RNA sequence: GCCGCCGAGCGAGGCACUGAGCCACCCGGCCAAUUGGUCGCCUGCAGUCGGGUGGGGAGCCAGGGGCGAAACCGGCGCUCGAGCU
Numbered sequence: 001g002c003c004g005c006c007g008a009g010c011g012a013g014g015c016a017c018u019g020a021g022c023c024a025c026c027c028g029g030c031c032a033a034u035u036g037g038u039c040g041c042c043u044g045c046a047g048u049c050g051g052g053u054g055g056g057g058a059g060c061c062a063g064g065g066g067c068g069a070a071a072c073c074g075g076c077g078c079u080c081g082a083g084c085u
Stems, first nucleotide, its partner, number of pairs: 006081006013061003022055008036073002038069005
Dot-bracket structure: .....((((((.(((......((((((((......[[[[[[[.....))))))))...)))...]]]]]..]]..))))))....
The family of this 85-nucleotide RNA from Angustibacter sp. Root456 is "c-di-GMP-II-GAG riboswitch aptamer".
Pairs were carried over by alignment from the consensus structure, which is taken from published work.
For this family Rfam cites "Bioinformatic analysis of riboswitch structures uncovers variant classes with altered ligand specificity" (Weinberg et al., Proc Natl Acad Sci U S A, 2017).
Lineage of the source: Bacteria > Actinomycetota > Kineosporiales > Kineosporiaceae > Angustibacter.